[Rfam]
RNA sequence: CUUUAACAAUCCGGAACAAGCUGAAAAUUGAAACGACGCGUUGCGUCUGUUCUCCGUAAAUAAGAACAGGCAAGCGAUGCGUUCGAGUCUCUCAAAUUUUCACGAUUCACAGGACGCCUGUGG
Numbered sequence: 001c002u003u004u005a006a007c008a009a010u011c012c013g014g015a016a017c018a019a020g021c022u023g024a025a026a027a028u029u030g031a032a033a034c035g036a037c038g039c040g041u042u043g044c045g046u047c048u049g050u051u052c053u054c055c056g057u058a059a060a061u062a063a064g065a066a067c068a069g070g071c072a073a074g075c076g077a078u079g080c081g082u083u084c085g086a087g088u089c090u091c092u093c094a095a096a097u098u099u100u101c102a103c104g105a106u107u108c109a110c111a112g113g114a115c116g117c118c119u120g121u122g123g
Stems, first nucleotide, its partner, number of pairs: 020103001023101007034085003038082004108122003112118002

The family of this 123-nucleotide sequence from Enterobacterales bacterium CwR94 is "Salmonella enterica Typhi npcRNA 44". Rfam 15.1 lists 474 matches to the family in 137 species. The family's RNA type in Rfam is non-coding RNA gene. NCBI's taxonomy places the organism under Bacteria, Pseudomonadati, Pseudomonadota, Gammaproteobacteria, Enterobacterales. A reference for the family is Chinni et al. (2010), "Experimental identification and characterization of 97 novel npcRNA candidates in Salmonella enterica serovar Typhi", Nucleic Acids Res.